[Rfam]
Background: This 83-nucleotide RNA from Streptomyces populi belongs to the Rfam family "Streptomyces RNA 6106". A reference for the family is Vockenhuber et al. (2011), "Deep sequencing-based identification of small non-coding RNAs in Streptomyces coelicolor", RNA Biol. The family's RNA type in Rfam is small RNA.
RNA sequence: ACGCCGCCCGUGCGGCGUCCGAGCUCCUGAACGGGGCGAGCGGCGGGGGUGGUGCCGUGUCGGCGCAGCACCACCCCCGCGUC
Numbered sequence: 001a002c003g004c005c006g007c008c009c010g011u012g013c014g015g016c017g018u019c020c021g022a023g024c025u026c027c028u029g030a031a032c033g034g035g036g037c038g039a040g041c042g043g044c045g046g047g048g049g050u051g052g053u054g055c056c057g058u059g060u061c062g063g064c065g066c067a068g069c070a071c072c073a074c075c076c077c078c079g080c081g082u083c
Base pairs, nucleotide, nucleotide: 001018002017003016004015005014006013007012020040023037024036025035026034027033043080044079045078046077047076048075049074050073051072052071053070054069055068057066058065059064

A search with the family's covariance model found it, with a score of 69 bits. Identified by deep sequencing of transcriptome at the end of exponential growth phase. The pairing is the family consensus, mapped onto this sequence.